Shown here is a 74-nucleotide RNA sequence from Megasphaera paucivorans, a member of the family "Fluoride riboswitch aptamer (crcB RNA motif)". The family's consensus secondary structure is taken from published work. The source organism's lineage runs through Bacteria, Bacillota, Veillonellales, Veillonellaceae and Megasphaera.
RNA sequence: AUAUGAAACGGGAAUGAAUGUCUCCCGCGGCACUCUGUCGAAACUGCCAUUUGGCUGAUGACUUCUACUAUUAC
Numbered sequence: 001a002u003a004u005g006a007a008a009c010g011g012g013a014a015u016g017a018a019u020g021u022c023u024c025c026c027g028c029g030g031c032a033c034u035c036u037g038u039c040g041a042a043a044c045u046g047c048c049a050u051u052u053g054g055c056u057g058a059u060g061a062c063u064u065c066u067a068c069u070a071u072u073a074c
Base pairs, nucleotide, nucleotide: 010026011025012024013023016065017064018063020062021061022060046055047054048053